[Rfam]
The record is a 114-nucleotide RNA sequence from Triplophysa rosa, which matches "Potassium channel RNA editing signal" in Rfam.
Rfam classes the family as a cis-regulatory element.
Rfam's curators write: This family represents a group of sequences related to the human potassium channel Kv1.1 hairpin element which directs the efficient modification of an adenosine to inosine by an adenosine deaminase acting on RNA (ADAR). The ADAR modification causes an isoleucine/valine recoding event which lies in the ion-conducting pore of the potassium channel. It is thought that this editing event targets the process of fast inactivation and allows a more rapid recovery from inactivation at negative potentials.
On this family, see Bhalla et al., Nat Struct Mol Biol 2004: "Control of human potassium channel inactivation by editing of a small mRNA hairpin".
The organism belongs to Triplophysa, within Eukaryota.

RNA sequence: GUCGGCUACGGCGACAUGUGCCCUAUCACGUUGGGAGGGAAAAUGGUUGGGAUCCUCUGUGCCAUCGCCGGCGUGCUCACUAUCGCACUUCCAGUUCCCGUCAUCGUCUCCAAC
Number, nucleotide and partner (000 for none) at each position: 001g114002u113003c000004g111005g110006c000007u000008a107009c106010g105011g104012c000013g102014a101015c100016a000017u000018g097019u000020g095021c094022c000023c000024u000025a000026u000027c000028a000029c000030g000031u000032u000033g000034g000035g000036a000037g077038g076039g000040a074041a000042a000043a000044u000045g000046g000047u000048u000049g063050g062051g000052a000053u000054c000055c000056u000057c000058u000059g000060u000061g000062c050063c049064a000065u000066c000067g000068c000069c000070g000071g000072c000073g000074u040075g000076c038077u037078c000079a000080c000081u000082a000083u000084c000085g000086c000087a000088c000089u000090u000091c000092c000093a000094g021095u020096u000097c018098c000099c000100g015101u014102c013103a000104u011105c010106g009107u008108c000109u000110c005111c004112a000113a002114c001